This 167-nucleotide sequence from Phialocephala subalpina belongs to the Rfam family "Small nucleolar RNA snR80". The family is grouped with related families in Rfam's "SNORA28 clan". The source organism's lineage runs through Eukaryota, Opisthokonta, Helotiales, Phialocephala and Phialocephala fortinii species complex. By type it is an H/ACA-box small nucleolar RNA. It scores 46 bits against the family's covariance model. A reference for the family is Schattner et al. (2004), "Genome-wide searching for pseudouridylation guide snoRNAs: analysis of the Saccharomyces cerevisiae genome", Nucleic Acids Res.
[Rfam]
RNA sequence: GAGCCCUUGCCAAACACUCUGGCCCUUACCCCCUUCCCUUCGUGGAUCGGUUCAACCUAUGGUAUAGGCCUAUUUUUGAAGCAAGGAGAGCAGAUCUUGUCCGAUUACUCACCGCGACAUUCUCCUUCGGGCGUGGAUGUAGUGGUCCAUAUCUUUCUGGGCAACAU
Number, nucleotide and partner (000 for none) at each position: 001g000002a000003g000004c000005c000006c000007u084008u083009g082010c000011c000012a000013a000014a000015c000016a000017c000018u000019c000020u000021g070022g069023c068024c067025c000026u000027u064028a063029c062030c061031c000032c000033c000034u000035u000036c000037c000038c000039u000040u000041c000042g000043u000044g000045g000046a000047u000048c000049g000050g000051u000052u000053c000054a000055a000056c000057c000058u000059a000060u000061g030062g029063u028064a027065u000066a000067g024068g023069c022070c021071u000072a000073u000074u000075u000076u000077u000078g000079a000080a000081g000082c009083a008084a007085g000086g000087a000088g000089a000090g000091c000092a000093g000094a000095u000096c000097u000098u000099g162100u161101c160102c159103g000104a000105u000106u000107a000108c000109u000110c000111a000112c145113c144114g143115c142116g000117a140118c139119a138120u000121u137122c136123u135124c000125c000126u000127u000128c000129g000130g000131g000132c000133g000134u000135g123136g122137a121138u119139g118140u117141a000142g115143u114144g113145g112146u000147c000148c000149a000150u000151a000152u000153c000154u000155u000156u000157c000158u000159g102160g101161g100162c099163a000164a000165c000166a000167u000